[Rfam]
Nucleotides: 114
Base pairs, nucleotide, nucleotide: 002113005110007108008107009106010105011104014101015100016099018097021095022094037077038076040074050062
Number, partner (000 for none) and nucleotide at each position: 001000u002113u003000a004000a005110g006000a007108u008107a009106u010105g011104g012000u013000g014101a015100u016099a017000u018097g019000a020000u021095a022094c023000c024000g025000u026000c027000u028000a029000c030000a031000g032000u033000g034000u035000u036000g037077g038076g039000c040074a041000a042000a043000a044000u045000u046000a047000u048000u049000g050062g051000c052000a053000g054000u055000g056000u057000u058000u059000g060000u061000u062050c063000a064000u065000u066000a067000u068000g069000c070000g071000g072000u073000g074040u075000c076038c077037u078000a079000g080000u081000u082000a083000u084000c085000g086000c087000u088000u089000u090000g091000c092000c093000u094022g095021u096000a097018c098000c099016u100015g101014u102000a103000a104011u105010u106009g107008u108007a109000u110005c111000g112000a113002a114000u

Rfam assigns this 114-nucleotide RNA from Trichobilharzia regenti to the family "Potassium channel RNA editing signal". The family's consensus secondary structure is taken from published work. A search with the family's covariance model found it, with a score of 73 bits. NCBI's taxonomy places the organism under Eukaryota, Neodermata, Schistosomatoidea, Schistosomatidae, Trichobilharzia. Rfam links the family to the GO term adenosine to inosine editing.